Shown here is a 477-nucleotide part of an RNA from Phycomyces blakesleeanus, a member of the family "Eukaryotic large subunit ribosomal RNA".
The match comes from Rfam's covariance-model search (3291 bits).
The organism belongs to Phycomyces blakesleeanus, within Eukaryota.
RNA sequence: UGGAACAAUGUAGAUAAGGGAAGUCGGCAAAAUAGAUCCGUAACUUCGGGAUAAGGAUUGGCUCUAAGGGUUGGGUAAGUUUGGGCUGAUGGUAAUCGGCUGGCUAGCGAUUGGUUUUGGGCUUUACGGCCUGAGGCUGGUUGCCAAGCUGGUCAGGCACUGUUAGAUUCCGGCUUACAAUUAACAACCAACUUAGAACUGGUACGGACAAGGGGAAUCUGACUGUCUAAUUAAAACAUAGCAUUGCGAUGGCCAGAAAGUGGUGUUGACGCAAUGUGAUUUCUGCCCAGUGCUCUGAAUGUCAAAGUGAAGAAAUUCAACCAAGCGCGGGUAAACGGCGGGAGUAACUAUGACUCUCUUAAGGUAGCCAAAUGCCUCGUCAUCUAAUUAGUGACGCGCAUGAAUGGAUUAACGAGAUUCCCACUGUCCCUAUCUACUAUCUAGCGAAACCACAGCCAAGGGAACGGGCUUGGCAGA
Numbered sequence: 001u002g003g004a005a006c007a008a009u010g011u012a013g014a015u016a017a018g019g020g021a022a023g024u025c026g027g028c029a030a031a032a033u034a035g036a037u038c039c040g041u042a043a044c045u046u047c048g049g050g051a052u053a054a055g056g057a058u059u060g061g062c063u064c065u066a067a068g069g070g071u072u073g074g075g076u077a078a079g080u081u082u083g084g085g086c087u088g089a090u091g092g093u094a095a096u097c098g099g100c101u102g103g104c105u106a107g108c109g110a111u112u113g114g115u116u117u118u119g120g121g122c123u124u125u126a127c128g129g130c131c132u133g134a135g136g137c138u139g140g141u142u143g144c145c146a147a148g149c150u151g152g153u154c155a156g157g158c159a160c161u162g163u164u165a166g167a168u169u170c171c172g173g174c175u176u177a178c179a180a181u182u183a184a185c186a187a188c189c190a191a192c193u194u195a196g197a198a199c200u201g202g203u204a205c206g207g208a209c210a211a212g213g214g215g216a217a218u219c220u221g222a223c224u225g226u227c228u229a230a231u232u233a234a235a236a237c238a239u240a241g242c243a244u245u246g247c248g249a250u251g252g253c254c255a256g257a258a259a260g261u262g263g264u265g266u267u268g269a270c271g272c273a274a275u276g277u278g279a280u281u282u283c284u285g286c287c288c289a290g291u292g293c294u295c296u297g298a299a300u301g302u303c304a305a306a307g308u309g310a311a312g313a314a315a316u317u318c319a320a321c322c323a324a325g326c327g328c329g330g331g332u333a334a335a336c337g338g339c340g341g342g343a344g345u346a347a348c349u350a351u352g353a354c355u356c357u358c359u360u361a362a363g364g365u366a367g368c369c370a371a372a373u374g375c376c377u378c379g380u381c382a383u384c385u386a387a388u389u390a391g392u393g394a395c396g397c398g399c400a401u402g403a404a405u406g407g408a409u410u411a412a413c414g415a416g417a418u419u420c421c422c423a424c425u426g427u428c429c430c431u432a433u434c435u436a437c438u439a440u441c442u443a444g445c446g447a448a449a450c451c452a453c454a455g456c457c458a459a460g461g462g463a464a465c466g467g468g469c470u471u472g473g474c475a476g477a
Stems, first nucleotide, its partner, number of pairs: 001443004010437007018429003035059005044049001060200002063197006069189005075178007083170001088163001091160001105146001107144017201205001213422007220414002224238003241277008252264004281408003285339003290336002292332004297328001300327003308319004340358006359363001379395005456473005